[Rfam]
RNA: Small nucleolar RNA SNORD35
Organism: Myotis brandtii
RNA sequence: GGCAGACAAUGACUUUUUCUCAUGAUGGUCUGUGGAUGCCACUGUGGGCAGCGCCGAUAAUGCCAAUGGCUUAGCUGAUGCUGGGAG
Numbered sequence: 001g002g003c004a005g006a007c008a009a010u011g012a013c014u015u016u017u018u019c020u021c022a023u024g025a026u027g028g029u030c031u032g033u034g035g036a037u038g039c040c041a042c043u044g045u046g047g048g049c050a051g052c053g054c055c056g057a058u059a060a061u062g063c064c065a066a067u068g069g070c071u072u073a074g075c076u077g078a079u080g081c082u083g084g085g086a087g
Base pairs, nucleotide, nucleotide: 001082002081003080004079